[Rfam]
RNA sequence: GACAAAUAAAUCGAAUACCCUCAUAUAAUAACGGGGAUAGGGCCUGUAAGUUUCUACCCGGCUGCCGUAAACGGCCGGACUAUGAGGGGAAGUGACUGUCUG
Numbered sequence: 001g002a003c004a005a006a007u008a009a010a011u012c013g014a015a016u017a018c019c020c021u022c023a024u025a026u027a028a029u030a031a032c033g034g035g036g037a038u039a040g041g042g043c044c045u046g047u048a049a050g051u052u053u054c055u056a057c058c059c060g061g062c063u064g065c066c067g068u069a070a071a072c073g074g075c076c077g078g079a080c081u082a083u084g085a086g087g088g089g090a091a092g093u094g095a096c097u098g099u100c101u102g
Stems, first nucleotide, its partner, number of pairs: 018088008029049001031047005058078007